[Rfam]
RNA sequence: CCGGCUCCGGUUCACCCUGAUCUGUUUCGGGGACCCGGCGGCC
Number, nucleotide and partner (000 for none) at each position: 001c000002c000003g043004g042005c041006u000007c038008c037009g036010g035011u000012u000013c000014a000015c032016c031017c030018u029019g028020a027021u000022c000023u000024g000025u000026u000027u020028c019029g018030g017031g016032g015033a000034c000035c010036c009037g008038g007039c000040g000041g005042c004043c003

This 43-nucleotide RNA from Actinokineospora enzanensis belongs to the Rfam family "L31-Actinobacteria ribosomal protein leader". NCBI's taxonomy places the organism under Bacteria, Actinomycetes, Pseudonocardiales, Actinokineospora, Actinokineospora enzanensis. It is annotated as a cis-regulatory leader. The family is grouped with related families in Rfam's "Ribosomal Protein L31 Leader clan". The sequence is in the family's curated seed alignment. A reference for the family is Eckert and Weinberg (2020), "Discovery of 20 novel ribosomal leader candidates in bacteria and archaea", BMC Microbiol.